The record is an 86-nucleotide RNA sequence from Neobacillus bataviensis, which matches "BsrC" in Rfam.
Rfam's curators write: The 301 nucleotide sequence from Kouji Nakamura has been trimmed to a highly conserved ~85 nucleotide long core to form this family.
The match comes from Rfam's covariance-model search (73 bits).
Rfam classes the family as a small RNA.
RNA sequence: UUUAACUAAACGACGUAAGCCCUACCUCUCUUACAUCCUUACGGCUCCGAAGCCGAUCCAGUCUGAAUAGUUAUUCUAUUAAAUCG
Numbered sequence: 001u002u003u004a005a006c007u008a009a010a011c012g013a014c015g016u017a018a019g020c021c022c023u024a025c026c027u028c029u030c031u032u033a034c035a036u037c038c039u040u041a042c043g044g045c046u047c048c049g050a051a052g053c054c055g056a057u058c059c060a061g062u063c064u065g066a067a068u069a070g071u072u073a074u075u076c077u078a079u080u081a082a083a084u085c086g
Stems, first nucleotide, its partner, number of pairs: 034065002038061002042055005